This 121-nucleotide RNA from Neorhizobium sp. SOG26 belongs to the Rfam family "Alphaproteobacterial ar14".
Smr14C2 was renamed NfeR1 (Nodule Formation Efficiency RNA) highly expressed in salt stress and during the symbiotic interaction on legume roots.
The base pairs follow the family's consensus structure.
Its family is annotated with biological process involved in symbiotic interaction in the Gene Ontology.
[Rfam]
RNA sequence: UGGAACGUGGUGUUUCUCUCCUCCUCCCGGAAACACCCACAAGAACAGCGGCACUCCUCCUCCCAGUCGCCGUUCACAAAUCAAAAGCCUGCCGCACCUCCUCCCGCGGCAGGCUUUUUUC
Dot-bracket structure: ......((((((((((.............))))))).)))..((((.(((((.............))))).)))).........(((((((((((..........))))))))))).....